[Rfam]
Nucleotides: 063
Stems, first nucleotide, its partner, number of pairs: 034060002037057001039055004044050001
Number, partner (000 for none) and nucleotide at each position: 001000a002000g003000g004000u005000g006000u007000u008000a009000c010000a011000g012000c013000u014000c015000u016000u017000u018000u019000a020000g021000a022000a023000u024000u025000u026000g027000u028000c029000u030000a031000g032000c033000a034060g035059g036000c037057u038000u039055u040054u041053u042052a043000u044050u045000u046000u047000u048000u049000u050044a051000c052042u053041g054040g055039a056000c057037a058000c059035c060034c061000c062000u063000c

A member of the RNA family "U7 small nuclear RNA" from Carlito syrichta, 63 nucleotides long. The match comes from Rfam's covariance-model search (51 bits). Rfam's curators write: Animal histone pre-mRNAs are spliced by a different mechanism than nuclear pre-mRNAs and self-splicing introns. For this family Rfam cites "3' end processing of mouse histone pre-mRNA: evidence for additional base-pairing between U7 snRNA and pre-mRNA" (Spycher et al., Nucleic Acids Res, 1994). The organism belongs to Carlito, within Eukaryota.